The family of this 80-nucleotide sequence from Drosophila persimilis is "mir-306 microRNA precursor family". NCBI's taxonomy places the organism under Eukaryota, Mandibulata, Brachycera, Eremoneura, Sophophora. Its family is annotated with miRNA-mediated post-transcriptional gene silencing and RISC complex in the Gene Ontology. It is one of the family's seed sequences.
RNA sequence: CACUUUGCCGGCUCAGGUACUUAGUGACUCUCAAUGCUUUCGACAUCUUGAGAGUCUCUCUGUGCCUGCACUGGCGGUGG
Numbered sequence: 001c002a003c004u005u006u007g008c009c010g011g012c013u014c015a016g017g018u019a020c021u022u023a024g025u026g027a028c029u030c031u032c033a034a035u036g037c038u039u040u041c042g043a044c045a046u047c048u049u050g051a052g053a054g055u056c057u058c059u060c061u062g063u064g065c066c067u068g069c070a071c072u073g074g075c076g077g078u079g080g
Stems, first nucleotide, its partner, number of pairs: 001079002004077002009073003014068007023059002026056008034046003
The literature on the family includes a 2003 paper in Dev Cell by Aravin et al., "The small RNA profile during Drosophila melanogaster development".